Background
A member of the RNA family "c-di-AMP riboswitch aptamer (ydaO/yuaA leader)" from Oxobacter pfennigii, 135 nucleotides long.

RNA sequence: GCACAAAAAAAGCUGAAUCUCCUUUUCAGGGAGUACGGAGAAACCAAAAUUGGGGUUAAUCCAUCUUUGUAUGGUAGGGACGCCUCUUUGCCCGCACCCGUCAGCUAACUUCGGAAGCUAAAAAUAGGAGGAUAG
Numbered sequence: 001g002c003a004c005a006a007a008a009a010a011a012g013c014u015g016a017a018u019c020u021c022c023u024u025u026u027c028a029g030g031g032a033g034u035a036c037g038g039a040g041a042a043a044c045c046a047a048a049a050u051u052g053g054g055g056u057u058a059a060u061c062c063a064u065c066u067u068u069g070u071a072u073g074g075u076a077g078g079g080a081c082g083c084c085u086c087u088u089u090g091c092c093c094g095c096a097c098c099c100g101u102c103a104g105c106u107a108a109c110u111u112c113g114g115a116a117g118c119u120a121a122a123a124a125u126a127g128g129a130g131g132a133u134a135g
Base pairs, nucleotide, nucleotide: 011119012118013117014116019033020032021031022030036113037112038111039110040109045052046051053099054098055097061074062073063072064071077093078092079091